Notes
c-di-GMP-I riboswitch aptamer: an 84-nucleotide sequence from Agathobacter rectalis. Rfam describes the family as follows. GEMM was predicted in a large-scale screen for bacterial structured RNA regulatory elements.

[Rfam]
RNA sequence: AAACAAUUUGGGCAAAAUAAGGGAAAUCUUAUGACGCAAAGCUAGAGUCUAAAACAUUGUUGUUAUGACAGUUCGGUUGCAAUA
Numbered sequence: 001a002a003a004c005a006a007u008u009u010g011g012g013c014a015a016a017a018u019a020a021g022g023g024a025a026a027u028c029u030u031a032u033g034a035c036g037c038a039a040a041g042c043u044a045g046a047g048u049c050u051a052a053a054a055c056a057u058u059g060u061u062g063u064u065a066u067g068a069c070a071g072u073u074c075g076g077u078u079g080c081a082a083u084a
Stems, first nucleotide, its partner, number of pairs: 012037002017032006040078004045074002047069003054063003
Gene Ontology term of the family: cyclic-di-GMP binding. NCBI's taxonomy places the organism under Bacteria, Bacillati, Clostridia, Agathobacter, Agathobacter rectalis.